[Rfam]
RNA sequence: ACUUAUCACUGGGGGUGCCUUCGGGCUGAGAGAUACCCUAUGAACCUGAACCGGGUAAUGCCGGCGGAGGGAAGUGGACAAGGUUUGAC
Numbered sequence: 001a002c003u004u005a006u007c008a009c010u011g012g013g014g015g016u017g018c019c020u021u022c023g024g025g026c027u028g029a030g031a032g033a034u035a036c037c038c039u040a041u042g043a044a045c046c047u048g049a050a051c052c053g054g055g056u057a058a059u060g061c062c063g064g065c066g067g068a069g070g071g072a073a074g075u076g077g078a079c080a081a082g083g084u085u086u087g088a089c
Stems, first nucleotide, its partner, number of pairs: 006077005011039004016033001017026003045070003051064004